[Rfam]
RNA sequence: CCGGUCAUGCGUUUUACCCGCCGUCUAUCAAAUCUACUACUACACGCCUUCACUGCGCGCGGUAGAUUUGUGGGUGGUUUUACGGGGUAAUCCUCAACCUGCAGACACUAUAAGAACCCGCGCCAGUGCGCGGGUUUUUUU
Dot-bracket structure: ...(...((.(..((((((.((((((((.(......(((((...(((.........))).)))))..).)))))))).......))))))..).)).....)..........(((((((((((....)))))))))))...
RNA: Leucine operon leader
Organism: Erwinia sp. OLSSP12